[Rfam]
RNA sequence: AUUAAUAUAGGUGAUGGAGUUUACCUUAACUGCUAUAAAGCUAAUGACUCCUACAAGUAA
Numbered sequence: 001a002u003u004a005a006u007a008u009a010g011g012u013g014a015u016g017g018a019g020u021u022u023a024c025c026u027u028a029a030c031u032g033c034u035a036u037a038a039a040g041c042u043a044a045u046g047a048c049u050c051c052u053a054c055a056a057g058u059a060a
Base pairs, nucleotide, nucleotide: 010025011024012023013022016051017050018049019048020047021046032041033040034039
Rfam assigns this 60-nucleotide sequence from Clostridium homopropionicum to the family "Fluoride riboswitch aptamer (crcB RNA motif)". Pairs were carried over by alignment from the consensus structure, which is taken from published work. Taxonomically the source falls in Clostridium homopropionicum (Bacteria, Bacillota, Clostridia, Clostridiaceae).